Plant signal recognition particle RNA: a 303-nucleotide sequence from Cicer arietinum.

RNA sequence: GUCGAGUUGGGUAGCUCCAACUUGUGACCCAAGCGGGGGCAACAAGGUGAUGGAACAUAGCUUUGGCUUGUCUGGUUGGGUUGGUGGCUGCACUGUGCAAGCCUGCCCGCUCCAAGUUGAGAGUUGAGUCACGGGGCUUGGGCGAAGGCUCGGGUCUCUUGGCUCCUAGACUGGAGGGUAUAGCGUGAGGCUGGACUCACAGAGCAGCGAAAACCUUCGGCUCCUAACAGUGGAGGGAUCACAGGCUGCCGCACCACUUGCCCACAAAGCUUGUCGAGCCAAGCUCGUCGGACCAUCAUUUUU
Numbered sequence: 001g002u003c004g005a006g007u008u009g010g011g012u013a014g015c016u017c018c019a020a021c022u023u024g025u026g027a028c029c030c031a032a033g034c035g036g037g038g039g040c041a042a043c044a045a046g047g048u049g050a051u052g053g054a055a056c057a058u059a060g061c062u063u064u065g066g067c068u069u070g071u072c073u074g075g076u077u078g079g080g081u082u083g084g085u086g087g088c089u090g091c092a093c094u095g096u097g098c099a100a101g102c103c104u105g106c107c108c109g110c111u112c113c114a115a116g117u118u119g120a121g122a123g124u125u126g127a128g129u130c131a132c133g134g135g136g137c138u139u140g141g142g143c144g145a146a147g148g149c150u151c152g153g154g155u156c157u158c159u160u161g162g163c164u165c166c167u168a169g170a171c172u173g174g175a176g177g178g179u180a181u182a183g184c185g186u187g188a189g190g191c192u193g194g195a196c197u198c199a200c201a202g203a204g205c206a207g208c209g210a211a212a213a214c215c216u217u218c219g220g221c222u223c224c225u226a227a228c229a230g231u232g233g234a235g236g237g238a239u240c241a242c243a244g245g246c247u248g249c250c251g252c253a254c255c256a257c258u259u260g261c262c263c264a265c266a267a268a269g270c271u272u273g274u275c276g277a278g279c280c281a282a283g284c285u286c287g288u289c290g291g292a293c294c295a296u297c298a299u300u301u302u303u
Base pairs, nucleotide, nucleotide: 001040002039003038004023005022006021007020008019009018010017011016028037029036030035044302045301046300047299048298049297050296051295052294053293056290058287060285061283062282063281065279068277069276070275072273074271075270076269077268078263079262080261081260083258084257085256086255089253090252100247101246102245103244104243105242107237108236110235111234112233113232114231116228117227118226119225121223122222123221124220126165127164128163129162130161131160133158134157135156136155137154138153139152140151141150142149143148172219173218174217175216176215177214184209185208186207191202192201193200

The family is grouped with related families in Rfam's "SRP clan". On this family, see Wild et al., Curr Opin Struct Biol 2002: "Towards the structure of the mammalian signal recognition particle". Taxonomically the source falls in Cicer (Eukaryota, Streptophytina, Pentapetalae, Hologalegina). By type it is a non-coding RNA gene.